RNA sequence: GGCUGGUCCAAGUGAAAUGUUGUUUACAAUUCAUUGAUCACAGCCAGUUACAGAGUUCUCUGUUCCUUCUCCACUCCCACUGCUUCACUUGACUGGCCUUAA
Numbered sequence: 001g002g003c004u005g006g007u008c009c010a011a012g013u014g015a016a017a018u019g020u021u022g023u024u025u026a027c028a029a030u031u032c033a034u035u036g037a038u039c040a041c042a043g044c045c046a047g048u049u050a051c052a053g054a055g056u057u058c059u060c061u062g063u064u065c066c067u068u069c070u071c072c073a074c075u076c077c078c079a080c081u082g083c084u085u086c087a088c089u090u091g092a093c094u095g096g097c098c099u100u101a102a
Stems, first nucleotide, its partner, number of pairs: 001098008010090002014086002016081001018079002022076001033063002036060002